[Rfam]
RNA sequence: AUACUUACUUGGACAGGGUCAAUGAGCGCUCAAGAAGGCUCAUGGCUUGGGUAGGCGACCUCUAUUGCACUUGGGAGGUGCGCCUUCUUAACGUCUCUCCAAAGUGGGAGAGCGUACGUCAUAAUUUACGGCAGUGGGGGCCUGCGUUCGUGCGACCCCUAG
Numbered sequence: 001a002u003a004c005u006u007a008c009u010u011g012g013a014c015a016g017g018g019u020c021a022a023u024g025a026g027c028g029c030u031c032a033a034g035a036a037g038g039c040u041c042a043u044g045g046c047u048u049g050g051g052u053a054g055g056c057g058a059c060c061u062c063u064a065u066u067g068c069a070c071u072u073g074g075g076a077g078g079u080g081c082g083c084c085u086u087c088u089u090a091a092c093g094u095c096u097c098u099c100c101a102a103a104g105u106g107g108g109a110g111a112g113c114g115u116a117c118g119u120c121a122u123a124a125u126u127u128a129c130g131g132c133a134g135u136g137g138g139g140g141c142c143u144g145c146g147u148u149c150g151u152g153c154g155a156c157c158c159c160u161a162g
Base pairs, nucleotide, nucleotide: 012120013119014118016048017047018046019045020044021043023042024041025040026039027038049089050088051087053086055083056082057081060078061077062075063074091115092114093113094111095110096109098107099106135161136160137159138158139157143154144153145152146151
RNA: U1 spliceosomal RNA
Organism: Carnegiea gigantea